[Rfam]
Nucleotides: 143
Base pairs, nucleotide, nucleotide: 001069004066005065007063008062009061013058015056016055023053024052025051026050028048029047032046033045034044083136084135085134086133087132088131089130091127092126096125097124098123099122100121107113
Number, partner (000 for none) and nucleotide at each position: 001069u002000u003000g004066g005065c006000u007063u008062c009061u010000c011000u012000c013058c014000g015056a016055u017000u018000u019000a020000u021000u022000c023053g024052u025051g026050c027000c028048u029047g030000c031000g032046g033045a034044c035000c036000a037000a038000u039000u040000u041000g042000u043000g044034g045033u046032u047029c048028g049000u050026g051025u052024g053023c054000a055016a056015u057000g058013g059000u060000g061009a062008g063007a064000c065005g066004u067000g068000a069001a070000g071000c072000a073000a074000a075000a076000g077000u078000g079000a080000u081000g082000u083136g084135u085134u086133c087132c088131u089130c090000u091127c092126g093000c094000u095000a096125u097124c098123c099122g100121g101000c102000g103000c104000g105000g106000a107113a108000u109000u110000u111000g112000u113107u114000g115000a116000u117000g118000c119000g120000a121100u122099u123098g124097g125096a126092c127091g128000u129000c130089g131088a132087g133086g134085a135084a136083c137000u138000a139000c140000a141000c142000u143000u

About this RNA
Small nucleolar RNA snoR136: a 143-nucleotide RNA from Oryza meyeriana. For this family Rfam cites "Mining small RNA sequencing data: a new approach to identify small nucleolar RNAs in Arabidopsis" (Chen and Wu, Nucleic Acids Res, 2009). The base pairs follow the family's consensus structure, which was predicted with mfold. By type it is an H/ACA-box small nucleolar RNA. The source organism's lineage runs through Eukaryota, Poaceae, Oryzoideae, Oryza and Oryza meyeriana. Its family is annotated with nucleolus and RNA processing in the Gene Ontology.